[Rfam]
RNA: mir-27 microRNA precursor family
RNA sequence: UCACGGCGCAGAGCUUAGCUAAUCGGUGAGCAUUGAUCCCUUAAGAAAACUGUUCACAGUGGCUAAGUUCAGUGUCUGGA
Numbered sequence: 001u002c003a004c005g006g007c008g009c010a011g012a013g014c015u016u017a018g019c020u021a022a023u024c025g026g027u028g029a030g031c032a033u034u035g036a037u038c039c040c041u042u043a044a045g046a047a048a049a050c051u052g053u054u055c056a057c058a059g060u061g062g063c064u065a066a067g068u069u070c071a072g073u074g075u076c077u078g079g080a
Stems, first nucleotide, its partner, number of pairs: 011070010026057007